[Rfam]
Shown here is a 76-nucleotide RNA from Crocodylus porosus, a member of the family "Mammalian CPEB3 ribozyme".
The base pairs follow the family's consensus structure, which is taken from published work.
From the family's description: The mammalian CPEB3 ribozyme is a self cleaving RNA located in the second intron of the CPEB3 gene which belongs to a family of genes regulating messenger RNA polyadenylation.
Lineage of the source: Eukaryota > Eumetazoa > Vertebrata > Sarcopterygii > Crocodylus.

RNA sequence: AUUGCAAGGCUGAAGCCACAAUGAAAAUGCACAUGGUGUGGCUAUGCCAGAUUCCAAUGAAUCUGUGAAUUCUGUU
Dot-bracket structure: .............((((..[[[[.[[(((.......)))))))....(((((((....)))))))....]].]]]]